RNA: Mammalian CPEB3 ribozyme
RNA sequence: CCUGCAAUACCAGCCACAGCAGAAAUGCUCACAUCAUACCCCUGUCAGAUUCUAACAAAUCUGCAAAUUCUGCU
Number, nucleotide and partner (000 for none) at each position: 001c000002c000003u000004g000005c000006a000007a000008u000009a000010c000011c000012a000013g042014c000015c000016a000017c000018a074019g073020c072021a071022g070023a069024a068025a037026u036027g035028c000029u000030c000031a000032c000033a000034u000035c027036a026037u025038a000039c000040c000041c000042c013043u000044g000045u000046c063047a062048g061049a060050u059051u058052c000053u000054a000055a000056c000057a000058a051059a050060u049061c048062u047063g046064c000065a000066a000067a000068u024069u023070c022071u021072g020073c019074u018